[Rfam]
The family of this 92-nucleotide RNA sequence is "c-di-GMP-II-GAG riboswitch aptamer".
RNA sequence: GCACAAGGUAGAGGCCAACAACCCCGACCCACCAAGACGGGCACCUAAUGGAGUUGGGGGAGGAGCCAGUGGUGCGACCGGCUACCGCGUAU
Number, nucleotide and partner (000 for none) at each position: 001g092002c000003a090004c089005a000006a000007g086008g085009u084010a083011g082012a000013g067014g066015c065016c000017a000018a000019c000020a000021a000022c000023c060024c059025c056026g055027a054028c053029c000030c051031a000032c000033c000034a000035a000036g000037a000038c000039g079040g078041g075042c074043a073044c072045c071046u000047a000048a000049u000050g000051g030052a000053g028054u027055u026056g025057g000058g000059g024060g023061a000062g000063g000064a000065g015066c014067c013068a000069g000070u000071g045072g044073u043074g042075c041076g000077a000078c040079c039080g000081g000082c011083u010084a009085c008086c007087g000088c000089g004090u003091a000092u001
On this family, see Weinberg et al., Proc Natl Acad Sci U S A 2017: "Bioinformatic analysis of riboswitch structures uncovers variant classes with altered ligand specificity".